[Rfam]
This 118-nucleotide RNA sequence from Campylobacter lari belongs to the Rfam family "Ribosomal S15 leader". Rfam links the family to the GO term regulation of translation, ncRNA-mediated.
RNA sequence: UCUUUUUGGUUUUUUAGUUAUAAUUGCACUUUUUAUUUUAAUACCGCUCAGGAGGUCUAUUAUGGCUUUAGAUUCGGCUAAAAAAGCAGAAAUAGUUGCAAAAUUUGCUAGAAAAGAA
Numbered sequence: 001u002c003u004u005u006u007u008g009g010u011u012u013u014u015u016a017g018u019u020a021u022a023a024u025u026g027c028a029c030u031u032u033u034u035a036u037u038u039u040a041a042u043a044c045c046g047c048u049c050a051g052g053a054g055g056u057c058u059a060u061u062a063u064g065g066c067u068u069u070a071g072a073u074u075c076g077g078c079u080a081a082a083a084a085a086g087c088a089g090a091a092a093u094a095g096u097u098g099c100a101a102a103a104u105u106u107g108c109u110a111g112a113a114a115a116g117a118a
Stems, first nucleotide, its partner, number of pairs: 007026005048072002051069004

From the family's description: The E. coli Ribosomal S15 gene 5' UTR can form two alternative structures. One that is a series of three hairpins, The other includes a pseudoknot. This structure causes translational regulation of the S15 protein. The alignment of this family contains only the final two hairpins which are conserved in other species, and also includes the complete region that forms the alternate structures. The match comes from Rfam's covariance-model search (46 bits). The family's RNA type in Rfam is cis-regulatory leader. Clan: Ribosomal Protein S15 Leader clan.